Rfam assigns this 62-nucleotide RNA sequence to the family "Glutamine-II riboswitch aptamer". Gene Ontology term of the family: glutamine binding. A reference for the family is Huang et al. (2019), "Structure and ligand binding of the glutamine-II riboswitch", Nucleic Acids Res.
[Rfam]
RNA sequence: CAGCGUUCACUUCGCAUUCCGCGGAGCGCAGCUCGACUCAGGCCAUGGAACGGGGGUCUGGG
Numbered sequence: 001c002a003g004c005g006u007u008c009a010c011u012u013c014g015c016a017u018u019c020c021g022c023g024g025a026g027c028g029c030a031g032c033u034c035g036a037c038u039c040a041g042g043c044c045a046u047g048g049a050a051c052g053g054g055g056g057u058c059u060g061g062g
Stems, first nucleotide, its partner, number of pairs: 004052005010026005037062006043055002